[Rfam]
RNA sequence: ACGGUGUUCCGCUGUGGCAUAGAUUGCGUGCAAGAGCAUCUG
Dot-bracket structure: ..(((((((...((..((.......))...)).)))))))..
Rfam assigns this 42-nucleotide sequence from Lysinibacillus sphaericus to the family "Ribosomal protein L19 leader". Rfam classes the family as a cis-regulatory leader. On this family, see Zengel and Lindahl, Prog Nucleic Acid Res Mol Biol 1994: "Diverse mechanisms for regulating ribosomal protein synthesis in Escherichia coli". This family is a putative r-protein leader autoregulatory structure found in B. subtilis and other low-GC Gram-positive bacteria. It is located in the 5' untranslated regions of mRNAs encoding ribosomal protein L19 (rplS). Pairs were carried over by alignment from the consensus structure, which was predicted with CMfinder. The match comes from Rfam's covariance-model search (36 bits).